[Rfam]
RNA sequence: CUCCGCGAAAUCUAUUUAGGUAGAGCGUUGAUUUUAUACUCCGGGGGGUAGAGCACUGGAUAGGCUAGGGGUCUUUACCGGAUUACUAAACCUAACCAAACUCCGAAUACCCGGAAGUACUGAUCAGCAGACACACGGCGGGUGCUAACGUCCGUCGUGGAGAGGGAAACAACCCGGACCACCAUCUAAGGUCCCUAAGUUAUGGCUAAGUGGGAAAGGAUGUGAGGAUCCCAAAACAACCAGGAUGUUGGCUUAGAAGCAGCCAUCAUUUAAAGAAAGCGUAAUAGCUCACUGGUCUAAGCAAGGGUCUUUGCGCCGAAAAUGUAACGGGGCUGAAGCCAUACACCGAAGCUGUGGAUUUGCUUGUUUUGCAAGUGGUAGCGGAGCGUUCCGUAAGCCUGUGAAGGAAUACCUGUGAGGGGUUCUGGAGGUAUCGGAAGUGAGAAU
Numbered sequence: 001c002u003c004c005g006c007g008a009a010a011u012c013u014a015u016u017u018a019g020g021u022a023g024a025g026c027g028u029u030g031a032u033u034u035u036a037u038a039c040u041c042c043g044g045g046g047g048g049u050a051g052a053g054c055a056c057u058g059g060a061u062a063g064g065c066u067a068g069g070g071g072u073c074u075u076u077a078c079c080g081g082a083u084u085a086c087u088a089a090a091c092c093u094a095a096c097c098a099a100a101c102u103c104c105g106a107a108u109a110c111c112c113g114g115a116a117g118u119a120c121u122g123a124u125c126a127g128c129a130g131a132c133a134c135a136c137g138g139c140g141g142g143u144g145c146u147a148a149c150g151u152c153c154g155u156c157g158u159g160g161a162g163a164g165g166g167a168a169a170c171a172a173c174c175c176g177g178a179c180c181a182c183c184a185u186c187u188a189a190g191g192u193c194c195c196u197a198a199g200u201u202a203u204g205g206c207u208a209a210g211u212g213g214g215a216a217a218g219g220a221u222g223u224g225a226g227g228a229u230c231c232c233a234a235a236a237c238a239a240c241c242a243g244g245a246u247g248u249u250g251g252c253u254u255a256g257a258a259g260c261a262g263c264c265a266u267c268a269u270u271u272a273a274a275g276a277a278a279g280c281g282u283a284a285u286a287g288c289u290c291a292c293u294g295g296u297c298u299a300a301g302c303a304a305g306g307g308u309c310u311u312u313g314c315g316c317c318g319a320a321a322a323u324g325u326a327a328c329g330g331g332g333c334u335g336a337a338g339c340c341a342u343a344c345a346c347c348g349a350a351g352c353u354g355u356g357g358a359u360u361u362g363c364u365u366g367u368u369u370u371g372c373a374a375g376u377g378g379u380a381g382c383g384g385a386g387c388g389u390u391c392c393g394u395a396a397g398c399c400u401g402u403g404a405a406g407g408a409a410u411a412c413c414u415g416u417g418a419g420g421g422g423u424u425c426u427g428g429a430g431g432u433a434u435c436g437g438a439a440g441u442g443a444g445a446a447u
Stems, first nucleotide, its partner, number of pairs: 001386006011024005026130001027128007036121001040115006051104001052102002057098003061094004068087002070084005134159010164175003179357004184353001186351001190347003199344001201343006218317002222314010239296005245269003250264003270274001275290001279288002358376006387442001389439005397432003406426005412421003
RNA: Bacterial large subunit ribosomal RNA, nucleotides 886 to 1332
Organism: Candidatus Tokpelaia sp. JSC161